About this RNA: This 66-nucleotide RNA sequence belongs to the Rfam family "S15-Flavobacteria ribosomal protein leader". The sequence is in the family's curated seed alignment. Rfam classes the family as a cis-regulatory leader.
RNA sequence: UAUAUUUGCGGUUCGAAAGAAAACCUUUCGUUGUACAUAACAAUCAUUUACAAUAAUAUUAGCAUG
Numbered sequence: 001u002a003u004a005u006u007u008g009c010g011g012u013u014c015g016a017a018a019g020a021a022a023a024c025c026u027u028u029c030g031u032u033g034u035a036c037a038u039a040a041c042a043a044u045c046a047u048u049u050a051c052a053a054u055a056a057u058a059u060u061a062g063c064a065u066g
Stems, first nucleotide, its partner, number of pairs: 014030006